Rfam assigns this 151-nucleotide sequence from Brassica carinata to the family "Small nucleolar RNA snoR2/U65". The family has 11 seed sequences and 908 matches in Rfam 15.1. Lineage of the source: Eukaryota > Viridiplantae > Streptophytina > Spermatophyta > Brassica. It scores 133 bits against the family's covariance model. Pairs were carried over by alignment from the consensus structure, which was predicted with WAR. Gene Ontology terms of the family: RNA processing and nucleolus.

RNA sequence: UGUCCGAUGCCACGUCGACGAUAGCUUUUCUAGGCAAUGAUCGUCGAUGCUACAUUGGACAUAAACGGAUGUUUGUGUUUCGCUAUUCUGAUAGGAACCUGUAGAUCUUGAAUUCUCUGUGGUCUACGGAGCCAUUUCAGCGAUUACAUUU
Numbered sequence: 001u002g003u004c005c006g007a008u009g010c011c012a013c014g015u016c017g018a019c020g021a022u023a024g025c026u027u028u029u030c031u032a033g034g035c036a037a038u039g040a041u042c043g044u045c046g047a048u049g050c051u052a053c054a055u056u057g058g059a060c061a062u063a064a065a066c067g068g069a070u071g072u073u074u075g076u077g078u079u080u081c082g083c084u085a086u087u088c089u090g091a092u093a094g095g096a097a098c099c100u101g102u103a104g105a106u107c108u109u110g111a112a113u114u115c116u117c118u119g120u121g122g123u124c125u126a127c128g129g130a131g132c133c134a135u136u137u138c139a140g141c142g143a144u145u146a147c148a149u150u151u
Stems, first nucleotide, its partner, number of pairs: 002060008013049006020042003024035003080143005094133002099129003103125005